[Rfam]
RNA sequence: GAGCCAUGAUCCUCGGGGGGUCGCGUUAGGGGAAAACGCGUCUAUGGGGAUAAACUGUCAAAUUCCGGGGAAGUCCUAAAGCUUAAGGUACCAAGCUGUAGUUGAAAAACUAUGAGUGGCUGAAGUAAUUACUCAGGUACGGUAACAAGCCUUAAGAUGAGUGAAAACAAAAUGGAUAAUCGCGGAUCUAAGUCAGUAGUAAUCGAUAGUAAUUCUACUGUAAAAGAGCAACGAGUAGACGGCAGUUGAUCCAUAAAGUCACAUUUAAUGGAUUUAAGAUGUACUCUAAGGGGUUUCGAAAGAAACAG
Numbered sequence: 001g002a003g004c005c006a007u008g009a010u011c012c013u014c015g016g017g018g019g020g021u022c023g024c025g026u027u028a029g030g031g032g033a034a035a036a037c038g039c040g041u042c043u044a045u046g047g048g049g050a051u052a053a054a055c056u057g058u059c060a061a062a063u064u065c066c067g068g069g070g071a072a073g074u075c076c077u078a079a080a081g082c083u084u085a086a087g088g089u090a091c092c093a094a095g096c097u098g099u100a101g102u103u104g105a106a107a108a109a110c111u112a113u114g115a116g117u118g119g120c121u122g123a124a125g126u127a128a129u130u131a132c133u134c135a136g137g138u139a140c141g142g143u144a145a146c147a148a149g150c151c152u153u154a155a156g157a158u159g160a161g162u163g164a165a166a167a168c169a170a171a172a173u174g175g176a177u178a179a180u181c182g183c184g185g186a187u188c189u190a191a192g193u194c195a196g197u198a199g200u201a202a203u204c205g206a207u208a209g210u211a212a213u214u215c216u217a218c219u220g221u222a223a224a225a226g227a228g229c230a231a232c233g234a235g236u237a238g239a240c241g242g243c244a245g246u247u248g249a250u251c252c253a254u255a256a257a258g259u260c261a262c263a264u265u266u267a268a269u270g271g272a273u274u275u276a277a278g279a280u281g282u283a284c285u286c287u288a289a290g291g292g293g294u295u296u297c298g299a300a301a302g303a304a305a306c307a308g
Base pairs, nucleotide, nucleotide: 005025007023008022009021010020011019012018013017030037053247054246055245056244057243059241064186065185066184067183068181069180074176075175076174187227188226194220195219201214202213203212231287233286234285235284236283237282249273250272251271252270253269254268256266257265258264259263293306294305295304296303297302